[Rfam]
RNA sequence: GGGUGCAUUACAGGGCAACUCCUCCCUUGGCAGGUGGCUACUUGAAGCAUUGCUCGAGUUCGCCUACUGCCAAAGGAGAUUUGCCCCGCAAUUCACCA
Dot-bracket structure: ....(.(((.(.((((((...((((..((((((..(((.......................)))..))))))..))))..)))))).).))).)....
Numbered sequence: 001g002g003g004u005g006c007a008u009u010a011c012a013g014g015g016c017a018a019c020u021c022c023u024c025c026c027u028u029g030g031c032a033g034g035u036g037g038c039u040a041c042u043u044g045a046a047g048c049a050u051u052g053c054u055c056g057a058g059u060u061c062g063c064c065u066a067c068u069g070c071c072a073a074a075g076g077a078g079a080u081u082u083g084c085c086c087c088g089c090a091a092u093u094c095a096c097c098a
Stems, first nucleotide, its partner, number of pairs: 005094001007092003011088001013086006022078004028072006036064003